[Rfam]
RNA sequence: UCUGCAUGUGGAGAUGGCAUUCUCCUUCAACCGCCACGUCUGUGGCUGAUGAUGCCUAUAGUCCG
Numbered sequence: 001u002c003u004g005c006a007u008g009u010g011g012a013g014a015u016g017g018c019a020u021u022c023u024c025c026u027u028c029a030a031c032c033g034c035c036a037c038g039u040c041u042g043u044g045g046c047u048g049a050u051g052a053u054g055c056c057u058a059u060a061g062u063c064c065g
Stems, first nucleotide, its partner, number of pairs: 010025004016056006033046004
Dot-bracket structure: .........[[[[..((((((]]]].......((((......))))....)))))).........
RNA: Fluoride riboswitch aptamer (crcB RNA motif)